The family of this 204-nucleotide RNA from Lizanozyma spartinae is "Small nucleolar RNA snR43". On this family, see Balakin et al., Cell 1996: "The RNA world of the nucleolus: two major families of small RNAs defined by different box elements with related functions". Taxonomically the source falls in Lizanozyma (Eukaryota, Opisthokonta, Dikarya, Pichiomycetes). The family is grouped with related families in Rfam's "SNORA9 clan". Pairs were carried over by alignment from the consensus structure, which is taken from published work. By type it is an H/ACA-box small nucleolar RNA. A search with the family's covariance model found it, with a score of 144 bits. Gene Ontology terms of the family: RNA processing and nucleolus.
RNA sequence: CACUCCUGUUUCUGCCCCAAUUUCUUUACUCAACCAUAGAUUUCUGGGUUCUGGUUAUGGAGAAGAAAAAGCCCAAUGAUGGAACUUCAACGCCUUUUGAUACAUCAGUUGUUGUUUUAUUAGAGGGAUCGUGUGGCUGGGUGUGUAUCCUUGUGUGGCAACCACAUAUUAUGUGUGCUAGUCUGAUCCACCCUCACUAUAUUU
Numbered sequence: 001c002a003c004u005c006c007u008g009u010u011u012c013u014g015c016c017c018c019a020a021u022u023u024c025u026u027u028a029c030u031c032a033a034c035c036a037u038a039g040a041u042u043u044c045u046g047g048g049u050u051c052u053g054g055u056u057a058u059g060g061a062g063a064a065g066a067a068a069a070a071g072c073c074c075a076a077u078g079a080u081g082g083a084a085c086u087u088c089a090a091c092g093c094c095u096u097u098u099g100a101u102a103c104a105u106c107a108g109u110u111g112u113u114g115u116u117u118u119a120u121u122a123g124a125g126g127g128a129u130c131g132u133g134u135g136g137c138u139g140g141g142u143g144u145g146u147a148u149c150c151u152u153g154u155g156u157g158g159c160a161a162c163c164a165c166a167u168a169u170u171a172u173g174u175g176u177g178c179u180a181g182u183c184u185g186a187u188c189c190a191c192c193c194u195c196a197c198u199a200u201a202u203u204u
Base pairs, nucleotide, nucleotide: 003062004061005060006059016048017047018046019045020043023040024039025038072127073126074125077122078121079120080119081118082117083116084115085114088111089110090109091108133197134196135195136194139193140192141191142190143189153183156180159177163175164174165173166172